mir-23 microRNA precursor family: a 77-nucleotide RNA from Accipiter nisus. The literature on the family includes a 2005 paper in Genes Dev by Chen et al., "The developmental miRNA profiles of zebrafish as determined by small RNA cloning". Rfam links the family to the GO terms RISC complex and gene silencing by miRNA.
RNA sequence: CGCCCGCCGGGGUUCCUGGCGAUGCGAUUUUUUACCAUCUCGCCCAAAAUCACAUUGCCAGGGAUUUCCAACGGGCG
Numbered sequence: 001c002g003c004c005c006g007c008c009g010g011g012g013u014u015c016c017u018g019g020c021g022a023u024g025c026g027a028u029u030u031u032u033u034a035c036c037a038u039c040u041c042g043c044c045c046a047a048a049a050u051c052a053c054a055u056u057g058c059c060a061g062g063g064a065u066u067u068c069c070a071a072c073g074g075g076c077g
Base pairs, nucleotide, nucleotide: 001077002076004074005073006072010069011068012065013064014063015062016061017060018059019058020057021056022055023054024053026051027050028049029048030047
Annotation:
The organism belongs to Accipiter, within Eukaryota. The family's consensus secondary structure was predicted with PFOLD.